[Rfam]
RNA: Ascomycota telomerase RNA, nucleotides 31 to 237
Organism: Fusarium napiforme
RNA sequence: UCCCCGACAGUCCUCCGGUCCUCGUUUCUCGCAAGAGAUCCUAUUGUAGGCACUCGCAUCAUUUGGUUACCCUCCCAUAUGCCGCUCUCGAGCCUGUAACAGGACCUCGUGAAUGCCGCAGCCGGAUUAUGGUGGGUAGCGCGUCCUGUAGAGGACGUACCAAGCGGGCGGGUGAACGAGGCUCGGAACUUAACCCUAAGAAGAUAU
Dot-bracket structure: ........(((...((((....................................................................................................................................................................)))).))).................
Numbered sequence: 001u002c003c004c005c006g007a008c009a010g011u012c013c014u015c016c017g018g019u020c021c022u023c024g025u026u027u028c029u030c031g032c033a034a035g036a037g038a039u040c041c042u043a044u045u046g047u048a049g050g051c052a053c054u055c056g057c058a059u060c061a062u063u064u065g066g067u068u069a070c071c072c073u074c075c076c077a078u079a080u081g082c083c084g085c086u087c088u089c090g091a092g093c094c095u096g097u098a099a100c101a102g103g104a105c106c107u108c109g110u111g112a113a114u115g116c117c118g119c120a121g122c123c124g125g126a127u128u129a130u131g132g133u134g135g136g137u138a139g140c141g142c143g144u145c146c147u148g149u150a151g152a153g154g155a156c157g158u159a160c161c162a163a164g165c166g167g168g169c170g171g172g173u174g175a176a177c178g179a180g181g182c183u184c185g186g187a188a189c190u191u192a193a194c195c196c197u198a199a200g201a202a203g204a205u206a207u
Stems, first nucleotide, its partner, number of pairs: 009190003015186004